About this RNA: The record is a 389-nucleotide part of an RNA from Desmophyllum pertusum, which matches "Eukaryotic large subunit ribosomal RNA" in Rfam. Pairs were carried over by alignment from the consensus structure, which is taken from published work. On this family, see Yusupov et al., Science 2001: "Crystal structure of the ribosome at 5.5 A resolution". Its family is annotated with structural constituent of ribosome and ribosome in the Gene Ontology. NCBI's taxonomy places the organism under Eukaryota, Metazoa, Eumetazoa, Vacatina, Desmophyllum.

[Rfam]
RNA sequence: GAAGUGUUGUUGCAAUAGUAAUUCUGCUCAGUACGAGAGGAACCGCAGAUUCAGACAAUUGGCAUUUGCACUUGGCUGAAAAGCCAAUGGUGCGAAGCUACCAUCUGUUGGAUUAUGACUGAACGCCUCUAAGUCAGAAUCCGUGCUAGAAAGCAACGAUAAUUACCUCCAGAGAACCUUAGGCGAACAAGAAUAGAAGACUUCGGUCUUCAUGCGUCCCAACGUGCCAAGGGGGAAAACAACCCCCAAGGCACUAUCGAUAGCAAAUUCUAAUGUUUCUGGAGAUAAAUCCUUUGCAGACGACUUAAAUAAAGAACGGGGUAUUGUAAGUUGUAGAGUAGCCUUGUUGCUACGAUCUUCUGAGAUUAAGCCUUUGUUCUAAGAUUUGU
Dot-bracket structure: .....((((((((..((((.(.(((((.................))))).)((((....(((....(((((((((((....))))))..)))))...)))...)))).(((....(((((...........)))))....))).))))....)))))))).......(((((((......................................................................................................)))))))...(((((.(..(.......)..).....(((((((((.((.....(..(.(..(((((......)))))..))..)....))....))).))))))..)))))..